[Rfam]
RNA sequence: GACUCGGUAGCUCAGCUGGAUAGAGCAACGGCCUUCUAAGCCGUCGGUCGGGGGUUCGAAUCCCUUCCGAGUCG
Numbered sequence: 001g002a003c004u005c006g007g008u009a010g011c012u013c014a015g016c017u018g019g020a021u022a023g024a025g026c027a028a029c030g031g032c033c034u035u036c037u038a039a040g041c042c043g044u045c046g047g048u049c050g051g052g053g054g055u056u057c058g059a060a061u062c063c064c065u066u067c068c069g070a071g072u073c074g
Base pairs, nucleotide, nucleotide: 001073002072003071004070005069006068007067010026011025012024013023028044029043030042031041032040050066051065052064053063054062
Description: The family of this 74-nucleotide RNA from Hujiaoplasma nucleasis is "tRNA". The organism belongs to Hujiaoplasma, within Bacteria. Transfer RNA (tRNA) molecules are approximately 80 nucleotides in length. Pairs were carried over by alignment from the consensus structure, which is taken from published work. By type it is a transfer RNA.